The record is a 95-nucleotide sequence from Thermobaculum terrenum, which matches "Selenocysteine transfer RNA" in Rfam. Rfam 15.1 lists 4,211 matches to the family in 3,344 species. Its family is annotated with triplet codon-amino acid adaptor activity in the Gene Ontology. The source organism's lineage runs through Bacteria, Bacillati, Chloroflexia, Thermobaculales (SeqCode) and Thermobaculum terrenum.

RNA sequence: GGGAGCGGAAGGGUCCCGGUGGGUUCCGCGGUCUUCAAAACCGUUGGGAGGCUAGCACUGCUGGUCUCCGGUGGGUUCGACUCCCACGCGCUCCC
Numbered sequence: 001g002g003g004a005g006c007g008g009a010a011g012g013g014u015c016c017c018g019g020u021g022g023g024u025u026c027c028g029c030g031g032u033c034u035u036c037a038a039a040a041c042c043g044u045u046g047g048g049a050g051g052c053u054a055g056c057a058c059u060g061c062u063g064g065u066c067u068c069c070g071g072u073g074g075g076u077u078c079g080a081c082u083c084c085c086a087c088g089c090g091c092u093c094c095c
Stems, first nucleotide, its partner, number of pairs: 001095007008087001011026006028044005047069007072086004